[Rfam]
RNA sequence: GAGUUAGUGGCAUGUGGCGAGGUUAACCCGUGUGGGGGAGCCGUAGCGAAAGCGAGUCUGAAUAGGGCGUUUUUAGUCGCAUGCUCUAGACCCGAAGCGGAGUGAUCUAGCCAUGGGCAGGCUGAAGCGCGGGUAAGACCGCGUGGAGGGCCGAACCCACCAACGUUGAAAAGUUGGGGGAUGACCUGUGGUUAGGGGUGAAAGGCCAAUCAAACUCCGUGAUAGCUGGUU
Numbered sequence: 001g002a003g004u005u006a007g008u009g010g011c012a013u014g015u016g017g018c019g020a021g022g023u024u025a026a027c028c029c030g031u032g033u034g035g036g037g038g039a040g041c042c043g044u045a046g047c048g049a050a051a052g053c054g055a056g057u058c059u060g061a062a063u064a065g066g067g068c069g070u071u072u073u074u075a076g077u078c079g080c081a082u083g084c085u086c087u088a089g090a091c092c093c094g095a096a097g098c099g100g101a102g103u104g105a106u107c108u109a110g111c112c113a114u115g116g117g118c119a120g121g122c123u124g125a126a127g128c129g130c131g132g133g134u135a136a137g138a139c140c141g142c143g144u145g146g147a148g149g150g151c152c153g154a155a156c157c158c159a160c161c162a163a164c165g166u167u168g169a170a171a172a173g174u175u176g177g178g179g180g181a182u183g184a185c186c187u188g189u190g191g192u193u194a195g196g197g198g199u200g201a202a203a204g205g206c207c208a209a210u211c212a213a214a215c216u217c218c219g220u221g222a223u224a225g226c227u228g229g230u231u
Stems, first nucleotide, its partner, number of pairs: 005088003009085010021042004027036003046053002056068004091229002094226001098219006107195011118183001120152004127144006156180003160177005197207003
Background
Bacterial large subunit ribosomal RNA: a 231-nucleotide part of an RNA from Micromonospora inyonensis. NCBI's taxonomy places the organism under Bacteria, Actinomycetota, Actinomycetes, Micromonosporales, Micromonospora. Gene Ontology terms of the family: ribosome and structural constituent of ribosome. A search with the family's covariance model found it, with a score of 2802 bits. Clan: LSU clan.